[Rfam]
RNA sequence: CCCCUUGGUACACCUAACCUCUCAUAGGCUAUGUCUGACCGUAUAUCGAAUGCACAGACAAAGCCUAGUAGAGGCUAGAUUUAUAAGGAAAU
Numbered sequence: 001c002c003c004c005u006u007g008g009u010a011c012a013c014c015u016a017a018c019c020u021c022u023c024a025u026a027g028g029c030u031a032u033g034u035c036u037g038a039c040c041g042u043a044u045a046u047c048g049a050a051u052g053c054a055c056a057g058a059c060a061a062a063g064c065c066u067a068g069u070a071g072a073g074g075c076u077a078g079a080u081u082u083a084u085a086a087g088g089a090a091a092u
Stems, first nucleotide, its partner, number of pairs: 012080001014078003018074003027065004032060005
RNA: mir-282 microRNA precursor family
Organism: Drosophila virilis